[Rfam]
RNA sequence: UUAUAAGCAAAAAUCUACUUUUUAGAUUCAUUCAAUAAAUGAUGUAUGUGGUUCAUUAAAUAGACCACAUACAUCAUUUAUUGAAUGAACCUAAAAAGUGAAAUUUUACUUAUAA
Numbered sequence: 001u002u003a004u005a006a007g008c009a010a011a012a013a014u015c016u017a018c019u020u021u022u023u024a025g026a027u028u029c030a031u032u033c034a035a036u037a038a039a040u041g042a043u044g045u046a047u048g049u050g051g052u053u054c055a056u057u058a059a060a061u062a063g064a065c066c067a068c069a070u071a072c073a074u075c076a077u078u079u080a081u082u083g084a085a086u087g088a089a090c091c092u093a094a095a096a097a098g099u100g101a102a103a104u105u106u107u108a109c110u111u112a113u114a115a
Base pairs, nucleotide, nucleotide: 002114003113004112005111006110007109009107010106011105012104015100018098019097020096021095022094023093024092025091027089028088029087030086031085032084033083034082035081036080037079038078039077040076041075042074043073044072049067050066051065052064
The record is a 115-nucleotide sequence from Medicago truncatula, which matches "MIR2593 microRNA precursor family" in Rfam. It scores 104 bits against the family's covariance model. The family has 7 seed sequences and 1,262 matches in Rfam 15.1. Pairs were carried over by alignment from the consensus structure, which was predicted with RNAalifold. Gene Ontology terms of the family: RISC complex and miRNA-mediated post-transcriptional gene silencing. NCBI's taxonomy places the organism under Eukaryota, Viridiplantae, Streptophyta, Magnoliopsida, Medicago.